[Rfam]
Shown here is a 118-nucleotide sequence from Motilibacter peucedani, a member of the family "SAM (S-adenosyl methionine) riboswitch aptamer". Gene Ontology terms of the family: S-adenosylmethionine metabolic process and regulation of gene expression. The match comes from Rfam's covariance-model search (95 bits). On this family, see Weinberg et al., RNA 2008: "The aptamer core of SAM-IV riboswitches mimics the ligand-binding site of SAM-I riboswitches". The source organism's lineage runs through Bacteria, Actinomycetes, Motilibacterales, Motilibacteraceae and Motilibacter.
RNA sequence: UGUCACGAGCGCCAGCGUUCAGCCCCGGCUUGCUGGCCGGCAACCCUCCUCCUUCGCGGCGGGGUGCCCCGGGUGACGACACGGCCGACCCCGACCGGGGGCCCGGCAAGCGCGGACC
Numbered sequence: 001u002g003u004c005a006c007g008a009g010c011g012c013c014a015g016c017g018u019u020c021a022g023c024c025c026c027g028g029c030u031u032g033c034u035g036g037c038c039g040g041c042a043a044c045c046c047u048c049c050u051c052c053u054u055c056g057c058g059g060c061g062g063g064g065u066g067c068c069c070c071g072g073g074u075g076a077c078g079a080c081a082c083g084g085c086c087g088a089c090c091c092c093g094a095c096c097g098g099g100g101g102c103c104c105g106g107c108a109a110g111c112g113c114g115g116a117c118c
Base pairs, nucleotide, nucleotide: 001081002080003079004078009038011037012036013035014034015033016032021030022029039068040067041066044064045063046062048059049058084107085106086105087104090101091100092099